[Rfam]
RNA sequence: ACGCACUCGAUACUAACCGAGCCAUCUGGCCCUGGCCUCCCUGCGGGGCUCCUGGGGCUGCCUUGUGGUGGCUGGGUCUGAGCAGUGCAAAAUUAGCCAAGCCGUGAGGACUCUGAGCUCAGCGUGGGGAGACACACUCUGGGUUAUAACUCAAAGGCACAGCC
Number, nucleotide and partner (000 for none) at each position: 001a000002c000003g088004c087005a086006c085007u084008c000009g000010a000011u000012a000013c000014u000015a000016a077017c076018c075019g000020a073021g072022c071023c070024a069025u068026c067027u060028g059029g058030c057031c056032c055033u000034g050035g049036c048037c047038u046039c045040c000041c000042u000043g000044c000045g039046g038047g037048g036049c035050u034051c000052c000053u000054g000055g032056g031057g030058c029059u028060g027061c000062c000063u000064u000065g000066u000067g026068g025069u024070g023071g022072c021073u020074g000075g018076g017077u016078c000079u000080g000081a000082g000083c000084a007085g006086u005087g004088c003089a000090a000091a000092a000093u000094u000095a000096g000097c000098c000099a000100a000101g158102c157103c156104g000105u000106g000107a000108g000109g000110a000111c000112u000113c000114u000115g000116a000117g000118c000119u000120c000121a000122g137123c000124g135125u134126g133127g000128g000129g000130a000131g000132a000133c126134a125135c124136a000137c122138u155139c000140u153141g152142g151143g150144u149145u000146a000147u000148a000149a144150c143151u142152c141153a140154a000155a138156g103157g102158c101159a000160c000161a000162g000163c000164c000

The family of this 164-nucleotide RNA sequence from Ornithorhynchus anatinus is "Small Cajal body specific RNA 1". Gene Ontology terms of the family: nucleolus, RNA processing and Cajal body. Rfam's curators put it in the seed alignment. NCBI's taxonomy places the organism under Eukaryota, Bilateria, Gnathostomata, Prototheria, Ornithorhynchus. scaRNAs are a specific class of small nuclear RNAs which localise to the Cajal bodies and guide the modification of RNA polymerase II transcribed spliceosomal RNAs U1, U2, U4, U5 and U12. ACA35 belong to the H/ACA box class of guide RNAs as it has the predicted hairpin-hinge-hairpin-tail structure, conserved H/ACA-box motifs and is found associated with GAR1. It is predicted to guide pseudouridylation of the U2 spliceosomal snRNA at residue U89. For this family Rfam cites "Cajal body-specific small nuclear RNAs: a novel class of 2'-O-methylation and pseudouridylation guide RNAs" (Darzacq et al., EMBO J, 2002). Rfam 15.1 lists 715 matches to the family in 617 species.